[Rfam]
RNA sequence: GUCAACCACCCCGCCCUAAAAGGCGGAGCUUGCGGGUAAGCGCAGGCUCAGGUUGACCAGGGAAAGCGGUAACAAGUCCGCUACCUUGCAUGGAGAGCAAAAGACAGGCGUUGGGAUGCUUCCUAAAGUCCCAACCUCUCGAAGCCGGAGCUGUAGCCAGGCGCGAGGGCAAGGACGCUGGCGGACUCCGGCAUACGGCUAUCAUGCAACAUUCCCGAGAGGAUA
Numbered sequence: 001g002u003c004a005a006c007c008a009c010c011c012c013g014c015c016c017u018a019a020a021a022g023g024c025g026g027a028g029c030u031u032g033c034g035g036g037u038a039a040g041c042g043c044a045g046g047c048u049c050a051g052g053u054u055g056a057c058c059a060g061g062g063a064a065a066g067c068g069g070u071a072a073c074a075a076g077u078c079c080g081c082u083a084c085c086u087u088g089c090a091u092g093g094a095g096a097g098c099a100a101a102a103g104a105c106a107g108g109c110g111u112u113g114g115g116a117u118g119c120u121u122c123c124u125a126a127a128g129u130c131c132c133a134a135c136c137u138c139u140c141g142a143a144g145c146c147g148g149a150g151c152u153g154u155a156g157c158c159a160g161g162c163g164c165g166a167g168g169g170c171a172a173g174g175a176c177g178c179u180g181g182c183g184g185a186c187u188c189c190g191g192c193a194u195a196c197g198g199c200u201a202u203c204a205u206g207c208a209a210c211a212u213u214c215c216c217g218a219g220a221g222g223a224u225a
Stems, first nucleotide, its partner, number of pairs: 001057007010028001012025001015022001029046006060216005065082005086209008095200001105141001110135008121223003144192007152184001153182002